The record is a 137-nucleotide RNA sequence from Lampropedia puyangensis, which matches "TPP riboswitch aptamer (THI element)" in Rfam.
It scores 62 bits against the family's covariance model.
[Rfam]
RNA sequence: AGCCGUUCCUAGGGGUGUCCUGUGACGUUGUCGUCCGUGGGCUGAGAUGACGCUUAGUGCAUUGUUGGUGCAUUAAGCGGUAACCCUUCGAACCUGAUCCGGGUCAUGCCGGCGAAGGGAAGGAAUCUGUAAGCGCG
Number, nucleotide and partner (000 for none) at each position: 001a000002g000003c000004c000005g000006u125007u124008c123009c122010u121011a087012g086013g085014g084015g000016u000017g042018u041019c040020c039021u000022g000023u000024g000025a000026c000027g000028u000029u000030g000031u000032c000033g000034u000035c000036c000037g000038u000039g020040g019041g018042c017043u000044g000045a000046g000047a000048u000049g081050a000051c079052g078053c077054u076055u075056a074057g073058u072059g071060c070061a069062u068063u067064g000065u000066u000067g063068g062069u061070g060071c059072a058073u057074u056075a055076a054077g053078c052079g051080g000081u049082a000083a000084c014085c013086c012087u011088u000089c000090g000091a000092a000093c118094c117095u116096g000097a000098u000099c112100c111101g110102g109103g000104u000105c000106a000107u000108g000109c102110c101111g100112g099113c000114g000115a000116a095117g094118g093119g000120a000121a010122g009123g008124a007125a006126u000127c000128u000129g000130u000131a000132a000133g000134c000135g000136c000137g000